[Rfam]
RNA sequence: CGCCAAGUCCGAGGCUCCGGUGCUCACCGGAGUCUGGUGCGAAAGGGA
Numbered sequence: 001c002g003c004c005a006a007g008u009c010c011g012a013g014g015c016u017c018c019g020g021u022g023c024u025c026a027c028c029g030g031a032g033u034c035u036g037g038u039g040c041g042a043a044a045g046g047g048a
Stems, first nucleotide, its partner, number of pairs: 013034008
Dot-bracket structure: ............((((((((......))))))))..............